[Rfam]
RNA sequence: CAGACGGAUCGGGUGACCGCUGCGCUCUCAGAUAUUGAGAGCGGGGAGGAAAGUCCGGGCUCCUGCGGGCAAGGUGCUGGGUAACCCCCAGGCCCUCGACUAACAUUUAUUGUUGACAUCGAGGUACGGAAAGUGGCACAGAAACUAUACCGCCCCAGCUUAUGGGGUAAGGGUGAAAUUGCGAGGUAAAAGCUCACAACCGCACGUGGUGACACGGCGGUGGCCAAACCCCACCCGGAGCAAGGCCAAAUAGGGGGACAACGGAUGCCCGCUCCGUCCCCGGGUAGGCUGCUAGACCCCGACGGUAACGUCGCUCGACAGUUCUUGUAGAGAUCAACGUUUUUGAAAUUCGUUGCAGGGCUAGAUAGAUGGUCACCAUCCCAGUUUUCUGGGAGACAGAACCCGGCUUAUAGAUCCGUCUGGUCU
Numbered sequence: 001c002a003g004a005c006g007g008a009u010c011g012g013g014u015g016a017c018c019g020c021u022g023c024g025c026u027c028u029c030a031g032a033u034a035u036u037g038a039g040a041g042c043g044g045g046g047a048g049g050a051a052a053g054u055c056c057g058g059g060c061u062c063c064u065g066c067g068g069g070c071a072a073g074g075u076g077c078u079g080g081g082u083a084a085c086c087c088c089c090a091g092g093c094c095c096u097c098g099a100c101u102a103a104c105a106u107u108u109a110u111u112g113u114u115g116a117c118a119u120c121g122a123g124g125u126a127c128g129g130a131a132a133g134u135g136g137c138a139c140a141g142a143a144a145c146u147a148u149a150c151c152g153c154c155c156c157a158g159c160u161u162a163u164g165g166g167g168u169a170a171g172g173g174u175g176a177a178a179u180u181g182c183g184a185g186g187u188a189a190a191a192g193c194u195c196a197c198a199a200c201c202g203c204a205c206g207u208g209g210u211g212a213c214a215c216g217g218c219g220g221u222g223g224c225c226a227a228a229c230c231c232c233a234c235c236c237g238g239a240g241c242a243a244g245g246c247c248a249a250a251u252a253g254g255g256g257g258a259c260a261a262c263g264g265a266u267g268c269c270c271g272c273u274c275c276g277u278c279c280c281c282g283g284g285u286a287g288g289c290u291g292c293u294a295g296a297c298c299c300c301g302a303c304g305g306u307a308a309c310g311u312c313g314c315u316c317g318a319c320a321g322u323u324c325u326u327g328u329a330g331a332g333a334u335c336a337a338c339g340u341u342u343u344u345g346a347a348a349u350u351c352g353u354u355g356c357a358g359g360g361c362u363a364g365a366u367a368g369a370u371g372g373u374c375a376c377c378a379u380c381c382c383a384g385u386u387u388u389c390u391g392g393g394a395g396a397c398a399g400a401a402c403c404c405g406g407c408u409u410a411u412a413g414a415u416c417c418g419u420c421u422g423g424u425c426u
Base pairs, nucleotide, nucleotide: 001422002421003420004419005418006417007416008415009414010413011411012377013376014375015374016373017372018371020046021045023043024042025041026040027039028038051409052408053407055406056405057404058403059402060240061239062238063237067270068269069268070267073235074234075233076232077091078090079089080088081087092127094124095123096122097121098120099119128231129230133229134228135225136224137223150172151171152168153167154166155165156164157163180198181197183195184194185193201219202218203217205216206215207214208213244290245289246288247287254281255280256279257278258277259276263275264272297360298359299358301356302353303352304351